[Rfam]
Rfam assigns this 83-nucleotide RNA sequence to the family "Fluoride riboswitch aptamer (crcB RNA motif)". It scores 40 bits against the family's covariance model.
RNA sequence: AUAAUCAAAGGAAAUGAUGUCUUCCGGACACCGAUAAGGUAUCGAACCGCUUUGUUUGCAAAGCUGACGACGUCUAUGUUGCU
Numbered sequence: 001a002u003a004a005u006c007a008a009a010g011g012a013a014a015u016g017a018u019g020u021c022u023u024c025c026g027g028a029c030a031c032c033g034a035u036a037a038g039g040u041a042u043c044g045a046a047c048c049g050c051u052u053u054g055u056u057u058g059c060a061a062a063g064c065u066g067a068c069g070a071c072g073u074c075u076a077u078g079u080u081g082c083u
Stems, first nucleotide, its partner, number of pairs: 010025004016074006049064006